[Rfam]
RNA sequence: GGCCACCUUCGGGGGGCUACACCCGGGCACCGCUCAGCGAGCAAAGCCCACACACAGACAGGCGGGGCACGCACCCCGCUGCAAAGCAACGGAAGACAGAAA
Numbered sequence: 001g002g003c004c005a006c007c008u009u010c011g012g013g014g015g016g017c018u019a020c021a022c023c024c025g026g027g028c029a030c031c032g033c034u035c036a037g038c039g040a041g042c043a044a045a046g047c048c049c050a051c052a053c054a055c056a057g058a059c060a061g062g063c064g065g066g067g068c069a070c071g072c073a074c075c076c077c078g079c080u081g082c083a084a085a086g087c088a089a090c091g092g093a094a095g096a097c098a099g100a101a102a
Stems, first nucleotide, its partner, number of pairs: 001018004006014003024081003
The family of this 102-nucleotide RNA from Maritimibacter alkaliphilus is "L2-Alphaproteobacteria ribosomal protein leader".
It is one of the family's seed sequences.
NCBI's taxonomy places the organism under Bacteria, Pseudomonadota, Alphaproteobacteria, Roseobacteraceae, Maritimibacter alkaliphilus.